A member of the RNA family "Lysine riboswitch aptamer" from Bacillus salinus, 182 nucleotides long.
RNA sequence: AAGUGAGGUAGAGGCGCGGUAUUUAACAGUCCUUUGUGUAGUGUGAGAAGCGAUGAGACAAAGGAGAAGGAAAUAUCGCCGAAGCAUAUAAUAGACUCACUAUUAUAUGCUGGGUCUGCAGUUAAGAGCUGCAGGACUGUCUCAAUAGACGUCCCAGUUUAUUGAGUUGUGCUAUCUCGCAA
Numbered sequence: 001a002a003g004u005g006a007g008g009u010a011g012a013g014g015c016g017c018g019g020u021a022u023u024u025a026a027c028a029g030u031c032c033u034u035u036g037u038g039u040a041g042u043g044u045g046a047g048a049a050g051c052g053a054u055g056a057g058a059c060a061a062a063g064g065a066g067a068a069g070g071a072a073a074u075a076u077c078g079c080c081g082a083a084g085c086a087u088a089u090a091a092u093a094g095a096c097u098c099a100c101u102a103u104u105a106u107a108u109g110c111u112g113g114g115u116c117u118g119c120a121g122u123u124a125a126g127a128g129c130u131g132c133a134g135g136a137c138u139g140u141c142u143c144a145a146u147a148g149a150c151g152u153c154c155c156a157g158u159u160u161a162u163u164g165a166g167u168u169g170u171g172c173u174a175u176c177u178c179g180c181a182a
Base pairs, nucleotide, nucleotide: 006177007176008175009174010173011172016079017078018077019076020075021074022073023072024071031064032063033062034061035060036059037058083111084110085109086108087107088106089105090104091103092102093101094100112138113137115135116134117133118132119131120130121129122128141166142165143164144163145162146161147160148159149158
The source organism's lineage runs through Bacteria, Bacillota, Bacilli, Caryophanales and Bacillus.